[Rfam]
RNA sequence: AGGUUCCCACAGGAAGGACACCCUGCCCCUCUGCUCCUGCUCAGCUGGAACAGGGGCGUCUGGCGGGACACACAGCGGUCUUCCCUGUGGUUUAGGAGGGCGCUCUGAGUAUAGGGCUGGCUCUUAAAGGCACAAGAGGACAAG
Numbered sequence: 001a002g003g004u005u006c007c008c009a010c011a012g013g014a015a016g017g018a019c020a021c022c023c024u025g026c027c028c029c030u031c032u033g034c035u036c037c038u039g040c041u042c043a044g045c046u047g048g049a050a051c052a053g054g055g056g057c058g059u060c061u062g063g064c065g066g067g068a069c070a071c072a073c074a075g076c077g078g079u080c081u082u083c084c085c086u087g088u089g090g091u092u093u094a095g096g097a098g099g100g101c102g103c104u105c106u107g108a109g110u111a112u113a114g115g116g117c118u119g120g121c122u123c124u125u126a127a128a129g130g131c132a133c134a135a136g137a138g139g140a141c142a143a144g
Stems, first nucleotide, its partner, number of pairs: 003069005010063001025059002029055005083139002086136001088134001090131004096125006102117006